The family of this 134-nucleotide RNA from Tupaia belangeri is "Small nucleolar RNA SNORD94".
Rfam links the family to the GO terms nucleolus and RNA processing.
Rfam classes the family as a C/D-box small nucleolar RNA.
Taxonomically the source falls in Tupaia (Eukaryota, Gnathostomata, Amniota, Boreoeutheria).
RNA sequence: CAGGCAGUGAUGAUUGGCGCAGGGGUACGGACCUCAGCUGAGUCAUGGGAGCUGAAUGUACGUGCAUGUCGUCUUCCUGCAUGUGGCAGGUGAUGUCAGCACUUACAUGAGACUGUUGCCUCAAUCUGAGCCUG
Numbered sequence: 001c002a003g004g005c006a007g008u009g010a011u012g013a014u015u016g017g018c019g020c021a022g023g024g025g026u027a028c029g030g031a032c033c034u035c036a037g038c039u040g041a042g043u044c045a046u047g048g049g050a051g052c053u054g055a056a057u058g059u060a061c062g063u064g065c066a067u068g069u070c071g072u073c074u075u076c077c078u079g080c081a082u083g084u085g086g087c088a089g090g091u092g093a094u095g096u097c098a099g100c101a102c103u104u105a106c107a108u109g110a111g112a113c114u115g116u117u118g119c120c121u122c123a124a125u126c127u128g129a130g131c132c133u134g
Stems, first nucleotide, its partner, number of pairs: 001134005